Rfam assigns this 136-nucleotide RNA from Kalanchoe fedtschenkoi to the family "small nucleolar RNA snoR137".
The family's consensus secondary structure was predicted with RNAalifold.
The organism belongs to Kalanchoe, within Eukaryota.
For this family Rfam cites "Mining small RNA sequencing data: a new approach to identify small nucleolar RNAs in Arabidopsis" (Chen and Wu, Nucleic Acids Res, 2009).
By type it is an H/ACA-box small nucleolar RNA.

RNA sequence: GUUGCUUCUGAGAGUUGAGUGACCAUUUUACCAAUAGGUCAUUCUUAGAACUGAAGCAUAAAUGAAAAACUAAUGCCAGUCUUAAACAACUUGAUGAUAAUCCAUGUCAUUCUGUUACCUGUCUACUGGUAAAUUG
Number, nucleotide and partner (000 for none) at each position: 001g000002u000003u058004g057005c056006u055007u054008c053009u000010g000011a000012g000013a000014g000015u000016u000017g044018a043019g042020u041021g040022a039023c038024c037025a000026u000027u000028u000029u000030a000031c000032c000033a000034a000035u000036a000037g024038g023039u022040c021041a020042u019043u018044c017045u000046u000047a000048g000049a000050a000051c000052u000053g008054a007055a006056g005057c004058a003059u000060a000061a000062a000063u000064g000065a000066a000067a000068a000069a000070c000071u000072a000073a000074u000075g130076c129077c128078a127079g126080u125081c000082u000083u000084a000085a000086a000087c000088a116089a115090c114091u000092u000093g111094a110095u109096g108097a000098u000099a000100a000101u000102c000103c000104a000105u000106g000107u000108c096109a095110u094111u093112c000113u000114g090115u089116u088117a000118c000119c000120u000121g000122u000123c000124u000125a080126c079127u078128g077129g076130u075131a000132a000133a000134u000135u000136g000